Rfam assigns this 124-nucleotide sequence to the family "Small nucleolar RNA SNORA27". It is one of the family's seed sequences. ACA27 is a member of the H/ACA class of snoRNA that guide the sites of modification of uridines to pseudouridines. Rfam classes the family as an H/ACA-box small nucleolar RNA.

RNA sequence: AACCCCCUUUUCACUUUGCCAAUUGGACUUAUGUCUUUAUUGAUCAUUCAAGUGAGCAAAGGAAAUACGCUUUAAAAACUCAGGCAAACGGUGUUUGUCUUGUAUCCCGUCAGAGGAAACAAAU
Dot-bracket structure: ...............................(((.(...((((....))))..).))).........(.((((.......(((((((((...)))))))).).........)))))........